[Rfam]
RNA sequence: UAUUUUUAGUGUAGAAAAGUCUUAAUCCACAUAUGCUUGCAUAAAUGUGGAUUUAAGACCUUUCUACACGCUCCCAUAAUGAGCAUAAAAGUGAAGCGAAAGCUUCAUGAUAUGCGAAUGAUGGGAAAAGGAUUGCGAGAGUGCGAAGCACGUAGCAAUCCCAAAAAAUA
Numbered sequence: 001u002a003u004u005u006u007u008a009g010u011g012u013a014g015a016a017a018a019g020u021c022u023u024a025a026u027c028c029a030c031a032u033a034u035g036c037u038u039g040c041a042u043a044a045a046u047g048u049g050g051a052u053u054u055a056a057g058a059c060c061u062u063u064c065u066a067c068a069c070g071c072u073c074c075c076a077u078a079a080u081g082a083g084c085a086u087a088a089a090a091g092u093g094a095a096g097c098g099a100a101a102g103c104u105u106c107a108u109g110a111u112a113u114g115c116g117a118a119u120g121a122u123g124g125g126a127a128a129a130g131g132a133u134u135g136c137g138a139g140a141g142u143g144c145g146a147a148g149c150a151c152g153u154a155g156c157a158a159u160c161c162c163a164a165a166a167a168a169u170a
Base pairs, nucleotide, nucleotide: 001170002169003168004167005166006165007164010068011067012066013065016062017061019059020058021057022056023055024054025053026051027050028049029048030047031046032043033042034041035040073125074124075123076122077121079119080118083115084114085113086112091108092107093106094105095104096103097102130161131160132159133158134157135156136155141151142150143149144148
Rfam assigns this 170-nucleotide RNA from Eubacterium ventriosum to the family "Clostridiales-1 RNA". By type it is a small RNA. The family's consensus secondary structure is taken from published work.